Shown here is a 74-nucleotide RNA from Prevotella bivia, a member of the family "L13-Bacteroidia ribosomal protein leader". On this family, see Eckert and Weinberg, BMC Microbiol 2020: "Discovery of 20 novel ribosomal leader candidates in bacteria and archaea". It is annotated as a cis-regulatory leader. The source organism's lineage runs through Bacteria, Bacteroidia, Bacteroidales, Prevotellaceae and Prevotella.
RNA sequence: GGGAUUUUCUUAGAAUCCCAUACGUUACGUGUUAAUAACAUAGUCUUUGGCCGGGCUAUGUGGUUAGGAAAAGC
Numbered sequence: 001g002g003g004a005u006u007u008u009c010u011u012a013g014a015a016u017c018c019c020a021u022a023c024g025u026u027a028c029g030u031g032u033u034a035a036u037a038a039c040a041u042a043g044u045c046u047u048u049g050g051c052c053g054g055g056c057u058a059u060g061u062g063g064u065u066a067g068g069a070a071a072a073g074c
Stems, first nucleotide, its partner, number of pairs: 001019008032067005038061009